Rfam assigns this 72-nucleotide RNA sequence from Operophtera brumata to the family "mir-965 microRNA precursor family".

RNA sequence: CCCUUCGGGGAAAAAGGCGUGUGUCUAUGUAUGUAUGUACAUACAUAGACACACGCCUUUUUCCCCGAAGGG
Numbered sequence: 001c002c003c004u005u006c007g008g009g010g011a012a013a014a015a016g017g018c019g020u021g022u023g024u025c026u027a028u029g030u031a032u033g034u035a036u037g038u039a040c041a042u043a044c045a046u047a048g049a050c051a052c053a054c055g056c057c058u059u060u061u062u063c064c065c066c067g068a069a070g071g072g
Stems, first nucleotide, its partner, number of pairs: 003070005009064003013060002017056005024049006

Annotation:
For this family Rfam cites "The regulation of silkworm fibroin L chain production by miRNA-965 and miRNA-1926 in insect cells" (Huang et al., Bioorg Khim, 2012). Its family is annotated with miRNA-mediated post-transcriptional gene silencing and RISC complex in the Gene Ontology. The source organism's lineage runs through Eukaryota, Pancrustacea, Neoptera, Geometroidea and Operophtera.